[Rfam]
RNA sequence: CUUGGCCCUGGACACCAAGAGACUUGUGAUUAUGUCGAAAAUUAAAAAUUAGCUCAUAUCACAGUCUACUUGCUGUCCAGGGCCAGG
Numbered sequence: 001c002u003u004g005g006c007c008c009u010g011g012a013c014a015c016c017a018a019g020a021g022a023c024u025u026g027u028g029a030u031u032a033u034g035u036c037g038a039a040a041a042u043u044a045a046a047a048a049u050u051a052g053c054u055c056a057u058a059u060c061a062c063a064g065u066c067u068a069c070u071u072g073c074u075g076u077c078c079a080g081g082g083c084c085a086g087g
Stems, first nucleotide, its partner, number of pairs: 003085005009079006016072004020067005026062005032057003
The family of this 87-nucleotide RNA sequence from Caenorhabditis angaria is "mir-43 microRNA precursor family".
Pairs were carried over by alignment from the consensus structure, which was predicted with RNAalifold.
Rfam links the family to the GO terms miRNA-mediated post-transcriptional gene silencing and RISC complex.